The family of this 153-nucleotide RNA from Paraburkholderia eburnea is "Burkholderia sRNA 2". It scores 51 bits against the family's covariance model. The literature on the family includes a 2017 paper in Microbiology by Ghosh et al., "Identification of novel small RNAs in Burkholderia cenocepacia KC-01 expressed under iron limitation and oxidative stress conditions". The base pairs follow the family's consensus structure, which was predicted with RNAfold. Rfam describes the family as follows. Upregulated in response to iron ion depletion. Predicted targets include MerR family transcriptional regulator. The family's RNA type in Rfam is small RNA.
RNA sequence: AUGAGUGCCUGUCCACCCUAUAUUUUGUCGCGUUUUGCUACGUCCGCGCGGUGUGUCGAACGGUCACUGGAUGACCGCUCCAGCGCAUUCGGGCAACGCGCCAUCAGAGCAGUGAAGCCGCUUGCCUCGUCAGUCGGGGCGGCGGCUUUUUUG
Numbered sequence: 001a002u003g004a005g006u007g008c009c010u011g012u013c014c015a016c017c018c019u020a021u022a023u024u025u026u027g028u029c030g031c032g033u034u035u036u037g038c039u040a041c042g043u044c045c046g047c048g049c050g051g052u053g054u055g056u057c058g059a060a061c062g063g064u065c066a067c068u069g070g071a072u073g074a075c076c077g078c079u080c081c082a083g084c085g086c087a088u089u090c091g092g093g094c095a096a097c098g099c100g101c102c103a104u105c106a107g108a109g110c111a112g113u114g115a116a117g118c119c120g121c122u123u124g125c126c127u128c129g130u131c132a133g134u135c136g137g138g139g140c141g142g143c144g145g146c147u148u149u150u151u152u153g
Stems, first nucleotide, its partner, number of pairs: 007049002009046001011044001013042001015039001050102005067093002070090001076085003104115003116147006123141006